[Rfam]
RNA sequence: CCGACGGAUGAUGAUGCAAUCAUAUCCUACAUCGUCGCCGGGCUGGACAUGGAAUACCAGCCUCUGGUGUCGUCCCUUGACGCCUGCAUUGAACCAAUCAUGCUCGAUGAUCUCCUCACUCAGAUGAGUAAGUUUGAUC
Numbered sequence: 001c002c003g004a005c006g007g008a009u010g011a012u013g014a015u016g017c018a019a020u021c022a023u024a025u026c027c028u029a030c031a032u033c034g035u036c037g038c039c040g041g042g043c044u045g046g047a048c049a050u051g052g053a054a055u056a057c058c059a060g061c062c063u064c065u066g067g068u069g070u071c072g073u074c075c076c077u078u079g080a081c082g083c084c085u086g087c088a089u090u091g092a093a094c095c096a097a098u099c100a101u102g103c104u105c106g107a108u109g110a111u112c113u114c115c116u117c118a119c120u121c122a123g124a125u126g127a128g129u130a131a132g133u134u135u136g137a138u139c
Stems, first nucleotide, its partner, number of pairs: 004138001007135002088108005
The record is a 139-nucleotide sequence from Hordeum vulgare, which matches "Small nucleolar RNA Z247" in Rfam. The family's consensus secondary structure was predicted with PFOLD. The match comes from Rfam's covariance-model search (39 bits).